[Rfam]
RNA sequence: AAUAGAUCUUGUUAGGUGAGGUUACUGUAUGAAAAUAUGCCACUGCCCAGAAAUGUCCAGAGACACCAAUGGGUUAGCAGAUACUAUCGGAUUAAGGUUUUAUCUAAUGUGGCUGAGAAUUUCUCUACGUCUUACAGAGCUAAAACUCAACGAGUUGAGUGUGCUU
Number, nucleotide and partner (000 for none) at each position: 001a000002a000003u000004a000005g162006a000007u000008c159009u158010u157011g151012u150013u095014a000015g147016g146017u145018g000019a000020g141021g140022u139023u000024a000025c137026u136027g135028u134029a133030u000031g131032a130033a000034a000035a000036u000037a000038u000039g113040c112041c111042a110043c109044u000045g074046c073047c072048c071049a070050g000051a000052a000053a000054u065055g064056u063057c062058c000059a000060g000061a000062g057063a056064c055065a054066c000067c000068a000069a000070u049071g048072g047073g046074u045075u000076a000077g000078c000079a000080g104081a103082u102083a101084c000085u000086a098087u097088c096089g000090g000091a000092u000093u000094a000095a013096g088097g087098u086099u000100u000101u083102a082103u081104c080105u000106a000107a000108u000109g043110u042111g041112g040113c039114u000115g125116a124117g123118a000119a000120u000121u000122u000123c117124u116125c115126u000127a000128c000129g000130u032131c031132u000133u029134a028135c027136a026137g025138a000139g022140c021141u020142a000143a000144a000145a017146c016147u015148c000149a000150a012151c011152g000153a000154g000155u000156u000157g010158a009159g008160u000161g000162u005163g000164c000165u000166u000
RNA: M-box riboswitch aptamer (ykoK leader)
Organism: Clostridium argentinense